[Rfam]
mir-3473 microRNA precursor family: an 87-nucleotide sequence from Octodon degus. Taxonomically the source falls in Octodon (Eukaryota, Opisthokonta, Sarcopterygii, Theria).
RNA sequence: ACCACUGAGCCAUCUCUCCAGCCCCAUAAGUAUUUUUUAUGCACAUAAAAUGUGCUCAUAUAGGGGCUGGGGAGAUGGCUCAGUGGA
Numbered sequence: 001a002c003c004a005c006u007g008a009g010c011c012a013u014c015u016c017u018c019c020a021g022c023c024c025c026a027u028a029a030g031u032a033u034u035u036u037u038u039a040u041g042c043a044c045a046u047a048a049a050a051u052g053u054g055c056u057c058a059u060a061u062a063g064g065g066g067c068u069g070g071g072g073a074g075a076u077g078g079c080u081c082a083g084u085g086g087a
Stems, first nucleotide, its partner, number of pairs: 002086023